[Rfam]
RNA sequence: CACUGAUCGCCUGAUCCUUGCUUUACCUAUGUUUUUUUUAUAAUCAAGAUGAGCAAAGUUUCAGGUGUGUUUGUGG
Numbered sequence: 001c002a003c004u005g006a007u008c009g010c011c012u013g014a015u016c017c018u019u020g021c022u023u024u025a026c027c028u029a030u031g032u033u034u035u036u037u038u039u040a041u042a043a044u045c046a047a048g049a050u051g052a053g054c055a056a057a058g059u060u061u062c063a064g065g066u067g068u069g070u071u072u073g074u075g076g
Stems, first nucleotide, its partner, number of pairs: 002074002005071003008067007016058001018056002021053003027048002

About this RNA
Rfam assigns this 76-nucleotide RNA sequence from Pediculus humanus to the family "mir-87 microRNA precursor family". The organism belongs to Pediculus humanus, within Eukaryota. Rfam links the family to the GO terms miRNA-mediated post-transcriptional gene silencing and RISC complex. A search with the family's covariance model found it, with a score of 58 bits. The base pairs follow the family's consensus structure, which was predicted with RNAalifold.